[Rfam]
RNA: Vault RNA
Organism: Podarcis lilfordi
RNA sequence: GAGACAGCUCAGCCCAGCGGUUCCAUUGACCAAAGCAUUGCUAAGAUCCCAUAAUGGCUUCCAGCGGUUUGAGACCCUCAGGCACUGCCUGGCUUUCUU
Dot-bracket structure: .((.(((....(((..(.((.....((((.......................................))))...)).).))).....))).)).....
Numbered sequence: 001g002a003g004a005c006a007g008c009u010c011a012g013c014c015c016a017g018c019g020g021u022u023c024c025a026u027u028g029a030c031c032a033a034a035g036c037a038u039u040g041c042u043a044a045g046a047u048c049c050c051a052u053a054a055u056g057g058c059u060u061c062c063a064g065c066g067g068u069u070u071g072a073g074a075c076c077c078u079c080a081g082g083c084a085c086u087g088c089c090u091g092g093c094u095u096u097c098u099u
Stems, first nucleotide, its partner, number of pairs: 002094002005091003012083003017079001019077002026072004